[Rfam]
RNA sequence: AACAUGUGAUGACAAUGUUUCGGUCCCAAAUGAUGGUCAGUGAUUACCAGCAUGAGAUCUUUCUGAUGUU
Numbered sequence: 001a002a003c004a005u006g007u008g009a010u011g012a013c014a015a016u017g018u019u020u021c022g023g024u025c026c027c028a029a030a031u032g033a034u035g036g037u038c039a040g041u042g043a044u045u046a047c048c049a050g051c052a053u054g055a056g057a058u059c060u061u062u063c064u065g066a067u068g069u070u
Stems, first nucleotide, its partner, number of pairs: 001070004

A member of the RNA family "Small nucleolar RNA SNORD73" from Eleutherodactylus coqui, 70 nucleotides long. The family's consensus secondary structure was predicted with PFOLD. Rfam 15.1 lists 769 matches to the family in 586 species. A search with the family's covariance model found it, with a score of 62 bits. Gene Ontology terms of the family: nucleolus and RNA processing. NCBI's taxonomy places the organism under Eukaryota, Bilateria, Deuterostomia, Vertebrata, Eleutherodactylus.